[Rfam]
RNA sequence: GGCAAAGCCCGCCUGCGCGGGCUA
Number, nucleotide and partner (000 for none) at each position: 001g000002g000003c000004a000005a000006a023007g022008c021009c020010c019011g018012c017013c000014u000015g000016c000017g012018c011019g010020g009021g008022c007023u006024a000

A member of the RNA family "CRISPR RNA direct repeat element" from Roseiflexus sp. RS-1, 24 nucleotides long.
Rfam 15.1 lists 331 matches to the family in 38 species.